The record is an 85-nucleotide sequence from Leucobacter sp. UCD-THU, which matches "ZMP/ZTP riboswitch aptamer (pfl RNA motif)" in Rfam.
RNA sequence: GAUGGCUGUCGUGACUGGCGUGCAGAUGGGACACCAUCGGGGAACGACGUUUCGCAUCAAUUGGCCGCUCGCCUGGGUCGUAUUU
Numbered sequence: 001g002a003u004g005g006c007u008g009u010c011g012u013g014a015c016u017g018g019c020g021u022g023c024a025g026a027u028g029g030g031a032c033a034c035c036a037u038c039g040g041g042g043a044a045c046g047a048c049g050u051u052u053c054g055c056a057u058c059a060a061u062u063g064g065c066c067g068c069u070c071g072c073c074u075g076g077g078u079c080g081u082a083u084u085u
Stems, first nucleotide, its partner, number of pairs: 004052002007049006015041002017073004026037004062080005
The match comes from Rfam's covariance-model search (55 bits).